[Rfam]
RNA sequence: CCCAUUGAUGAUGAUGAUCUGAUCAGCUAUAUCAUUGCUGGUCUUGAUGAAGAAUAUGUGCCGGUAAUCUCGUCCAUUGUUGGGCGACCAGAUCAGGUGACCGUCAGUGAGGCCUUUGCUUAGUUGAUA
Numbered sequence: 001c002c003c004a005u006u007g008a009u010g011a012u013g014a015u016g017a018u019c020u021g022a023u024c025a026g027c028u029a030u031a032u033c034a035u036u037g038c039u040g041g042u043c044u045u046g047a048u049g050a051a052g053a054a055u056a057u058g059u060g061c062c063g064g065u066a067a068u069c070u071c072g073u074c075c076a077u078u079g080u081u082g083g084g085c086g087a088c089c090a091g092a093u094c095a096g097g098u099g100a101c102c103g104u105c106a107g108u109g110a111g112g113c114c115u116u117u118g119c120u121u122a123g124u125u126g127a128u129a
Base pairs, nucleotide, nucleotide: 004128005127006126007125008124089107091105092104093103
Dot-bracket structure: ...(((((................................................................................(.(((.........))).)................))))).
The record is a 129-nucleotide RNA sequence from Oryza sativa, which matches "Small nucleolar RNA Z247" in Rfam. Rfam classes the family as a C/D-box small nucleolar RNA. The source organism's lineage runs through Eukaryota, Streptophytina, Magnoliopsida, Oryza and Oryza sativa. On this family, see Chen et al., Nucleic Acids Res 2003: "The high diversity of snoRNAs in plants: identification and comparative study of 120 snoRNA genes from Oryza sativa". Rfam 15.1 lists 7,071 matches to the family in 142 species.